[Rfam]
The family of this 157-nucleotide RNA from a Kiloniellaceae bacterium is "speF leader".
By type it is a cis-regulatory leader.
Rfam's curators write: This family is a putative regulatory RNA structure that is found upstream of the speF gene encoding ornithine decarboxylase in Agrobacterium tumefaciens and other alpha-proteobacteria.
The match comes from Rfam's covariance-model search (65 bits).
Pairs were carried over by alignment from the consensus structure, which was predicted with RNAalifold.

RNA sequence: UGCCGGCUUUCCAAAGGCCGGGGUUACUGAAGAGGCAGCUACAUCCUUGCCAGCCGUGCGGACCGGGUCUCCCGUUCCAAGCGAAGGCAGCAUUUUCAGGGUCGCGACGACCAUGCCGCUGUGCGGCGUGUUCGCGCGACGGCCGGUACCGCAUCGG
Numbered sequence: 001u002g003c004c005g006g007c008u009u010u011c012c013a014a015a016g017g018c019c020g021g022g023g024u025u026a027c028u029g030a031a032g033a034g035g036c037a038g039c040u041a042c043a044u045c046c047u048u049g050c051c052a053g054c055c056g057u058g059c060g061g062a063c064c065g066g067g068u069c070u071c072c073c074g075u076u077c078c079a080a081g082c083g084a085a086g087g088c089a090g091c092a093u094u095u096u097c098a099g100g101g102u103c104g105c106g107a108c109g110a111c112c113a114u115g116c117c118g119c120u121g122u123g124c125g126g127c128g129u130g131u132u133c134g135c136g137c138g139a140c141g142g143c144c145g146g147u148a149c150c151g152c153a154u155c156g157g
Base pairs, nucleotide, nucleotide: 001023003021004020005019006018007017008016034051035050036049037048058137059136060135081091082090099120100119